[Rfam]
RNA sequence: UGUUAGGCGAAGUUGGUUUGUGACCGUCACUAACGGGCAGUGCUUUGUGAAUUUGCUCGUUUUGACGAUCGCAAAAUGAACUCGCUUAAC
Numbered sequence: 001u002g003u004u005a006g007g008c009g010a011a012g013u014u015g016g017u018u019u020g021u022g023a024c025c026g027u028c029a030c031u032a033a034c035g036g037g038c039a040g041u042g043c044u045u046u047g048u049g050a051a052u053u054u055g056c057u058c059g060u061u062u063u064g065a066c067g068a069u070c071g072c073a074a075a076a077u078g079a080a081c082u083c084g085c086u087u088a089a090c
Stems, first nucleotide, its partner, number of pairs: 003089008013079003017075007025067002032061008
The family of this 90-nucleotide RNA sequence from Eumeta japonica is "mir-274 microRNA precursor family". A search with the family's covariance model found it, with a score of 74 bits. The base pairs follow the family's consensus structure, which was predicted with RNAalifold.